[Rfam]
RNA sequence: CGGGGCGUGGCGCAGCCCGGAAGCGCGCUUGCAUGGGGUGCAAGAGGUCGGAGGUUCAAAUCCUCUCGCCCCGA
Numbered sequence: 001c002g003g004g005g006c007g008u009g010g011c012g013c014a015g016c017c018c019g020g021a022a023g024c025g026c027g028c029u030u031g032c033a034u035g036g037g038g039u040g041c042a043a044g045a046g047g048u049c050g051g052a053g054g055u056u057c058a059a060a061u062c063c064u065c066u067c068g069c070c071c072c073g074a
Stems, first nucleotide, its partner, number of pairs: 001073007010026004028044005050066005